[Rfam]
RNA sequence: UUGACGAUAUCGAGGCUGGCCUUUAGCCAGUGGGGAUGACCUGUUAAUACAGGCGGCAGUACUGAGUACUCAACCGAUACCCCGCAAUACCUCAACUUGCGUUCACUCUGGUGCACAGAUAUUCGUCA
Numbered sequence: 001u002u003g004a005c006g007a008u009a010u011c012g013a014g015g016c017u018g019g020c021c022u023u024u025a026g027c028c029a030g031u032g033g034g035g036a037u038g039a040c041c042u043g044u045u046a047a048u049a050c051a052g053g054c055g056g057c058a059g060u061a062c063u064g065a066g067u068a069c070u071c072a073a074c075c076g077a078u079a080c081c082c083c084g085c086a087a088u089a090c091c092u093c094a095a096c097u098u099g100c101g102u103u104c105a106c107u108c109u110g111g112u113g114c115a116c117a118g119a120u121a122u123u124c125g126u127c128a
Base pairs, nucleotide, nucleotide: 002128003127004126005125006123007122008121009120010119011118016030017029018028019027020026032083033082034081035080040053041052042051043050044049054076055075056074058070059069060068061067062066

The record is a 128-nucleotide RNA from Xenorhabdus nematophila, which matches "EFASI RNA" in Rfam. The sequence is in the family's curated seed alignment. By type it is a small RNA.